[Rfam]
RNA sequence: GAGAGAGGCUGGACGGCUGACGGGCCUUUGGGUCUGAGGAAAGUCUCCCCACCGCUCCGGAUACACGAACAUCUGUAAAGGAUGUCGGGCGAGAGCCCGGGCCCUGGCACAGAAACGAGAACCAUCCCCUGAAAAUGCGAUGAUGCGGAAGCUGAGGUCUCAGGGAAAAUGGAUGAAACGGCGAAUCCUCGUGGGUGCAAGUUGGAAAUCGGGAAGAAGAGAAUUCCGGACUCUCCCGGUUGUCUUUGAAAACGCAUAGCCGAAUGCCGUCACUGCAAGAGUCAUCAUGACCAUUUUCUCC
Dot-bracket structure: (((.(((..((((((((...(((((......))))).....[.......((((..........((((((((((.......)))))(((((....)))))((...(.((.............((((.((((((............((....)).......)))))).)..)))........)).)..)))))))))))...((...((..(((...........................)))..)).....))............))))))................]...))))).))).
RNA: Archaeal RNase P
Organism: Methanosarcina barkeri